[Rfam]
RNA sequence: AUUAAUCACAGGGGUCGUGAACCUCACAAAUUAAU
Numbered sequence: 001a002u003u004a005a006u007c008a009c010a011g012g013g014g015u016c017g018u019g020a021a022c023c024u025c026a027c028a029a030a031u032u033a034a035u
Stems, first nucleotide, its partner, number of pairs: 001035006011025005